[Rfam]
RNA sequence: ACAAUGGUACUCCUGUCCAGCCACAGAAUCACGCAAUGGGGGCAGCCCGGAGAGAUCCUCGGGGAGGUUAGAAUCCUGUGA
Numbered sequence: 001a002c003a004a005u006g007g008u009a010c011u012c013c014u015g016u017c018c019a020g021c022c023a024c025a026g027a028a029u030c031a032c033g034c035a036a037u038g039g040g041g042g043c044a045g046c047c048c049g050g051a052g053a054g055a056u057c058c059u060c061g062g063g064g065a066g067g068u069u070a071g072a073a074u075c076c077u078g079u080g081a
Stems, first nucleotide, its partner, number of pairs: 012078001013045006046064003050060003065077003